[Rfam]
RNA sequence: CCCGAUAAAUGGCAAAGCAAGCGAAAGCUUGUGACGCAAAGCUACAGGGGCGAAGGAUUCCGAACCGGGAUCCCGCCAGCCAGCUGCCGAA
Dot-bracket structure: ...........((...((((((....))))))...))..((((...(((((....((((((.....))))))..)))..))))))......
Numbered sequence: 001c002c003c004g005a006u007a008a009a010u011g012g013c014a015a016a017g018c019a020a021g022c023g024a025a026a027g028c029u030u031g032u033g034a035c036g037c038a039a040a041g042c043u044a045c046a047g048g049g050g051c052g053a054a055g056g057a058u059u060c061c062g063a064a065c066c067g068g069g070a071u072c073c074c075g076c077c078a079g080c081c082a083g084c085u086g087c088c089g090a091a
Stems, first nucleotide, its partner, number of pairs: 012037002017032006040085004047081002049077003056072006

c-di-GMP-I riboswitch aptamer: a 91-nucleotide sequence from Paenibacillus rigui. NCBI's taxonomy places the organism under Bacteria, Bacilli, Caryophanales, Paenibacillaceae, Paenibacillus. Gene Ontology term of the family: cyclic-di-GMP binding.